[Rfam]
RNA: SAM riboswitch aptamer (S box leader)
RNA sequence: AUCCUGAGUGGUGGAGGGACAUGGACCCAAUGAAACCCAGCAACCUCUUUUUUAUAAAAGAAAGGUGCCAAACCGUUUGCAGACAAAUAGGUCUGAACGAUAAGAG
Numbered sequence: 001a002u003c004c005u006g007a008g009u010g011g012u013g014g015a016g017g018g019a020c021a022u023g024g025a026c027c028c029a030a031u032g033a034a035a036c037c038c039a040g041c042a043a044c045c046u047c048u049u050u051u052u053u054a055u056a057a058a059a060g061a062a063a064g065g066u067g068c069c070a071a072a073c074c075g076u077u078u079g080c081a082g083a084c085a086a087a088u089a090g091g092u093c094u095g096a097a098c099g100a101u102a103a104g105a106g
Stems, first nucleotide, its partner, number of pairs: 002105002005102001008038001010037003016028003023077001024074001040068003044065002046061004080095005